Notes:
This 97-nucleotide RNA sequence belongs to the Rfam family "PhotoRC-II RNA". Rfam's curators put it in the seed alignment. The family's RNA type in Rfam is cis-regulatory element.
[Rfam]
RNA sequence: AGACAUAUACCUCUCCCCUUAAACCGAGACCUAUAGGGAGUUUAAAUUACGUCUCUCAUAUCCACCAGUGAAGGGAUUGGUGGAAAUAUAGUUUCGC
Numbered sequence: 001a002g003a004c005a006u007a008u009a010c011c012u013c014u015c016c017c018c019u020u021a022a023a024c025c026g027a028g029a030c031c032u033a034u035a036g037g038g039a040g041u042u043u044a045a046a047u048u049a050c051g052u053c054u055c056u057c058a059u060a061u062c063c064a065c066c067a068g069u070g071a072a073g074g075g076a077u078u079g080g081u082g083g084a085a086a087u088a089u090a091g092u093u094u095c096g097c
Base pairs, nucleotide, nucleotide: 013040014039015038016037017036020035021034026055027054028053029052030051062083063082064081065080066079067078068077